Shown here is a 96-nucleotide sequence from Hevea brasiliensis, a member of the family "MIR535 microRNA precursor family".
It scores 80 bits against the family's covariance model.
Gene Ontology terms of the family: RISC complex and miRNA-mediated post-transcriptional gene silencing.
The base pairs follow the family's consensus structure, which was predicted with RNAalifold.

RNA sequence: AUUAUUGGUUGACAACGAGACAGAGCACAUUUGUCAGCAUUUCAUGCAAGGGACAUGAUUAUUUACAAGCGUGCUCUCUAUUGUUGUCAUAGUAUG
Numbered sequence: 001a002u003u004a005u006u007g008g009u010u011g012a013c014a015a016c017g018a019g020a021c022a023g024a025g026c027a028c029a030u031u032u033g034u035c036a037g038c039a040u041u042u043c044a045u046g047c048a049a050g051g052g053a054c055a056u057g058a059u060u061a062u063u064u065a066c067a068a069g070c071g072u073g074c075u076c077u078c079u080a081u082u083g084u085u086g087u088c089a090u091a092g093u094a095u096g
Base pairs, nucleotide, nucleotide: 010089011088012087013086014085016083017082020079023076025074026073027072028071030069031068032067033066034065